[Rfam]
RNA sequence: UGUAAGGACGCUUACACUGGGUGUGACUGAAUAAACUUACUGGCAUCUAGCUGGUUAAGGUGAUGAGACACAGGUGGUGCUGCUAUCUUCGGAUAGAAUCGACUUACCAGUCGGGUCUCAGGCAGAGGUGUUUUUCUAAACUGUAGAAAUGCCCGCCUCUUGUUGGUAUACAGGAAUCCAACCACCCUCCUU
Numbered sequence: 001u002g003u004a005a006g007g008a009c010g011c012u013u014a015c016a017c018u019g020g021g022u023g024u025g026a027c028u029g030a031a032u033a034a035a036c037u038u039a040c041u042g043g044c045a046u047c048u049a050g051c052u053g054g055u056u057a058a059g060g061u062g063a064u065g066a067g068a069c070a071c072a073g074g075u076g077g078u079g080c081u082g083c084u085a086u087c088u089u090c091g092g093a094u095a096g097a098a099u100c101g102a103c104u105u106a107c108c109a110g111u112c113g114g115g116u117c118u119c120a121g122g123c124a125g126a127g128g129u130g131u132u133u134u135u136c137u138a139a140a141c142u143g144u145a146g147a148a149a150u151g152c153c154c155g156c157c158u159c160u161u162g163u164u165g166g167u168a169u170a171c172a173g174g175a176a177u178c179c180a181a182c183c184a185c186c187c188u189c190c191u192u
Stems, first nucleotide, its partner, number of pairs: 001016006019187005026061002039055006064120006071082003075109004083096005099114005124160007133149004141173004162182005
A member of the RNA family "manA RNA", 192 nucleotides long. manA RNA has been located in 5'UTR regions of genes of mannose or fructose metabolism. Has been proposed as a cis-regulatory element and as a riboswitch candidate for his complex secondary structure. Rfam classes the family as a cis-regulatory element.